[Rfam]
RNA sequence: AUAACUCACUUUCACUACGGAUCGUUCGGCACGUACCUGCCGAUGAAGGGACUCUGA
Number, nucleotide and partner (000 for none) at each position: 001a000002u000003a000004a000005c000006u000007c000008a000009c049010u048011u047012u046013c045014a044015c000016u000017a000018c000019g000020g000021a000022u000023c000024g000025u000026u043027c042028g041029g040030c039031a038032c000033g000034u000035a000036c000037c000038u031039g030040c029041c028042g027043a026044u014045g013046a012047a011048g010049g009050g000051a000052c000053u000054c000055u000056g000057a000
RNA: msiK RNA
Organism: Renibacterium salmoninarum